This 152-nucleotide sequence from Nematostella vectensis belongs to the Rfam family "U12 minor spliceosomal RNA".
The sequence is in the family's curated seed alignment.
Rfam links the family to the GO terms mRNA branch site recognition, U12 snRNP and pre-mRNA branch point binding.
Clan: U2 clan.
A reference for the family is Otake et al. (2002), "The divergent U12-type spliceosome is required for pre-mRNA splicing and is essential for development in Drosophila", Mol Cell.

RNA sequence: UUGCCUUAAACUAAUGAGUAAGGAAAAUAACGAUCUGGGUGACGCCAGAUCCCACGAUCAGUUUUCGUGAAGAAUUUUUGACGGGACCAGAGGCUACCCGUAGGUGACCCGCUUACUUUUGCGGGACGCCUGCGUUGCGAAUCCUCCGUCCA
Numbered sequence: 001u002u003g004c005c006u007u008a009a010a011c012u013a014a015u016g017a018g019u020a021a022g023g024a025a026a027a028u029a030a031c032g033a034u035c036u037g038g039g040u041g042a043c044g045c046c047a048g049a050u051c052c053c054a055c056g057a058u059c060a061g062u063u064u065u066c067g068u069g070a071a072g073a074a075u076u077u078u079u080g081a082c083g084g085g086a087c088c089a090g091a092g093g094c095u096a097c098c099c100g101u102a103g104g105u106g107a108c109c110c111g112c113u114u115a116c117u118u119u120u121g122c123g124g125g126a127c128g129c130c131u132g133c134g135u136u137g138c139g140a141a142u143c144c145u146c147c148g149u150c151c152a
Stems, first nucleotide, its partner, number of pairs: 004023005032051007053069005084151004091145003095141001097139001099134002102131005108125005